[Rfam]
RNA sequence: CCGUCCGCCCCUCGGAAUGCCCUGCGGCGGAAUCCGGGGUCUUGGCUACGCUGGCCUGGUGUGUACCAGUAGGACCGGCGCACACCAAGCCGACAGCCGUCGCACUCCAGGGAGCACACCCAUG
Numbered sequence: 001c002c003g004u005c006c007g008c009c010c011c012u013c014g015g016a017a018u019g020c021c022c023u024g025c026g027g028c029g030g031a032a033u034c035c036g037g038g039g040u041c042u043u044g045g046c047u048a049c050g051c052u053g054g055c056c057u058g059g060u061g062u063g064u065a066c067c068a069g070u071a072g073g074a075c076c077g078g079c080g081c082a083c084a085c086c087a088a089g090c091c092g093a094c095a096g097c098c099g100u101c102g103c104a105c106u107c108c109a110g111g112g113a114g115c116a117c118a119c120c121c122a123u124g
Stems, first nucleotide, its partner, number of pairs: 060084004066078002069075001089103002092101003
Dot-bracket structure: ...........................................................((((..((.(.....).))..))))....((.(((....))))).....................